[Rfam]
The record is a 74-nucleotide sequence from Ancylostoma ceylanicum, which matches "mir-1 microRNA precursor family" in Rfam. Rfam describes the family as follows. This family represents the microRNA (miRNA) mir-1 family. miRNAs are transcribed as ~70nt precursors (modelled here) and subsequently processed by the Dicer enzyme to give a ~22nt product. In this case the mature sequence comes from the 3' arm of the precursor. The extents of the hairpin precursors are not generally known and are estimated based on hairpin prediction. The products are thought to have regulatory roles through complementarity to mRNA. The involvement of Dicer in miRNA processing suggests a relationship with the phenomenon of RNA interference. miRNAs are numbered based on the sequence of the mature RNA. This family also contains the mir-206 from human, which appears to be related to mir-1. The family's consensus secondary structure was predicted with RNAalifold.
Nucleotides: 074
Base pairs, nucleotide, nucleotide: 007068008067009066011064012063013062014061015060016059017058018057019056020055021054022053023052024051025050028048029047030046031045032044
Number, partner (000 for none) and nucleotide at each position: 001000u002000u003000u004000c005000c006000g007068a008067c009066u010000u011064c012063g013062u014061g015060c016059u017058u018057c019056u020055u021054u022053g023052c024051a025050u026000g027000c028048c029047c030046a031045u032044a033000c034000u035000g036000u037000a038000u039000u040000g041000g042000g043000a044032u045031a046030u047029g048028g049000a050025a051024u052023g053022u054021a055020a056019a057018g058017a059016a060015g061014u062013a063012u064011g065000u066009a067008g068007u069000u070000u071000g072000a073000c074000c